RNA: Small nucleolar RNA U83B
RNA sequence: GCUGUUCCUUGCUGGAACUCAGGACAGAGCUCUGAUCACAGCUCCUGACAAUCAUUGUGGAGCAAUCAACUCCCUGUUGCUUACUCUGUUUUAAUUUCCUUACAGC
Numbered sequence: 001g002c003u004g005u006u007c008c009u010u011g012c013u014g015g016a017a018c019u020c021a022g023g024a025c026a027g028a029g030c031u032c033u034g035a036u037c038a039c040a041g042c043u044c045c046u047g048a049c050a051a052u053c054a055u056u057g058u059g060g061a062g063c064a065a066u067c068a069a070c071u072c073c074c075u076g077u078u079g080c081u082u083a084c085u086c087u088g089u090u091u092u093a094a095u096u097u098c099c100u101u102a103c104a105g106c
Base pairs, nucleotide, nucleotide: 001106002105003104004103005102